[Rfam]
RNA sequence: CCUCCCUGGCGAUGGGCAAAAAGACACUCUGUUGGUGGUGGUGUUCCUAUGUCAGUCAGGGGCAGAGCAGUCGGCAGUCCUUUGUUCAUCGUAGCUUGAUACCUACCUUAGUGCCCAAAACUGUUGUAUGCCUAGAACAUAUAA
Numbered sequence: 001c002c003u004c005c006c007u008g009g010c011g012a013u014g015g016g017c018a019a020a021a022a023g024a025c026a027c028u029c030u031g032u033u034g035g036u037g038g039u040g041g042u043g044u045u046c047c048u049a050u051g052u053c054a055g056u057c058a059g060g061g062g063c064a065g066a067g068c069a070g071u072c073g074g075c076a077g078u079c080c081u082u083u084g085u086u087c088a089u090c091g092u093a094g095c096u097u098g099a100u101a102c103c104u105a106c107c108u109u110a111g112u113g114c115c116c117a118a119a120a121c122u123g124u125u126g127u128a129u130g131c132c133u134a135g136a137a138c139a140u141a142u143a144a
Stems, first nucleotide, its partner, number of pairs: 003062006013054003019048001023042001025040004083139005098132001100130001104128003109123002112120001
A member of the RNA family "Small nucleolar RNA SNORA48" from Rattus norvegicus, 144 nucleotides long. By type it is an H/ACA-box small nucleolar RNA. Taxonomically the source falls in Rattus (Eukaryota, Eumetazoa, Sarcopterygii, Boreoeutheria). Its family is annotated with RNA processing and nucleolus in the Gene Ontology. Its Rfam clan is "SNORA48 clan". The snoRNA ACA 48 has been identified to guide pseudouridylation of the residue U3797 in the 28S rRNA subunit.